A member of the RNA family "ffh sRNA" from Novosphingobium aureum, 36 nucleotides long. A search with the family's covariance model found it, with a score of 36 bits. The literature on the family includes a 2009 paper in BMC Genomics by Meyer et al., "Identification of candidate structured RNAs in the marine organism 'Candidatus Pelagibacter ubique'". Taxonomically the source falls in Novosphingobium (Bacteria, Alphaproteobacteria, Sphingomonadales, Sphingomonadaceae). The base pairs follow the family's consensus structure, which is taken from published work.
[Rfam]
RNA sequence: CGCCGGUCAGCGAGUUUUCGCCCACCGGCGUUUUUG
Numbered sequence: 001c002g003c004c005g006g007u008c009a010g011c012g013a014g015u016u017u018u019c020g021c022c023c024a025c026c027g028g029c030g031u032u033u034u035u036g
Stems, first nucleotide, its partner, number of pairs: 001030007010021004